Plasmid transferred anti-sense RNA: a 72-nucleotide RNA from Xanthomonas euvesicatoria. Lineage of the source: Bacteria > Pseudomonadota > Gammaproteobacteria > Lysobacteraceae > Xanthomonas. Rfam's curators put it in the seed alignment. The family's RNA type in Rfam is antitoxin RNA. Rfam links the family to the GO terms negative regulation of translation and mRNA binding. A reference for the family is Findeiss et al. (2010), "A novel family of plasmid-transferred anti-sense ncRNAs", RNA Biol.
[Rfam]
RNA sequence: UUGCCAUGAUUCACCUCUCCAUCAGGUGGGUUAGUGGAAGUGUCGGCCGGCCCUACGCCGGCCGACGCGCCU
Numbered sequence: 001u002u003g004c005c006a007u008g009a010u011u012c013a014c015c016u017c018u019c020c021a022u023c024a025g026g027u028g029g030g031u032u033a034g035u036g037g038a039a040g041u042g043u044c045g046g047c048c049g050g051c052c053c054u055a056c057g058c059c060g061g062c063c064g065a066c067g068c069g070c071c072u
Stems, first nucleotide, its partner, number of pairs: 004037003009031001012028005040068012